A member of the RNA family "mir-81 microRNA precursor family" from Caenorhabditis japonica, 87 nucleotides long.
RNA sequence: ACGUUACCAACAGUCGGUUUUCCCAUUGAUCUGAGAGCUAACUGUACGCUAUCUGAGAUCAUCGUGAAAGCUAGUUGUCGGUUUACG
Numbered sequence: 001a002c003g004u005u006a007c008c009a010a011c012a013g014u015c016g017g018u019u020u021u022c023c024c025a026u027u028g029a030u031c032u033g034a035g036a037g038c039u040a041a042c043u044g045u046a047c048g049c050u051a052u053c054u055g056a057g058a059u060c061a062u063c064g065u066g067a068a069a070g071c072u073a074g075u076u077g078u079c080g081g082u083u084u085a086c087g
Stems, first nucleotide, its partner, number of pairs: 010078003016072007024064001027061006034054003037049002